[Rfam]
A member of the RNA family "U8 small nucleolar RNA" from Macaca nemestrina, 134 nucleotides long. The literature on the family includes a 2001 paper in Gene by Peculis et al., "The U8 snoRNA gene family: identification and characterization of distinct, functional U8 genes in Xenopus". Pairs were carried over by alignment from the consensus structure, which is taken from published work. Its family is annotated with nucleolus and RNA processing in the Gene Ontology. The organism belongs to Macaca, within Eukaryota. It scores 104 bits against the family's covariance model.

Nucleotides: 134
Base pairs, nucleotide, nucleotide: 023045024044025043027042028041029040030039031038073091074090077087078086079084095123096122097121098120100118101117102116103115
Number, partner (000 for none) and nucleotide at each position: 001000a002000a003000a004000u005000u006000a007000g008000u009000g010000g011000g012000a013000u014000a015000a016000u017000c018000c019000u020000u021000a022000c023045c024044u025043g026000u027042u028041c029040c030039u031038c032000g033000u034000u035000u036000u037000g038031g039030a040029g041028g042027a043025c044024a045023g046000g047000u048000a049000g050000a051000a052000c053000a054000u055000a056000a057000u058000a059000a060000c061000u062000g063000g064000a065000g066000u067000u068000u069000g070000c071000a072000u073091g074090a075000u076000c077087c078086g079084u080000g081000a082000u083000u084079a085000a086078u087077g088000u089000c090074u091073c092000u093000g094000u095123g096122u097121a098120a099000c100118c101117g102116g103115g104000a105000c106000u107000u108000g109000c110000a111000a112000a113000c114000u115103c116102u117101u118100g119000a120098u121097u122096g123095u124000u125000c126000g127000u128000a129000u130000c131000u132000g133000a134000u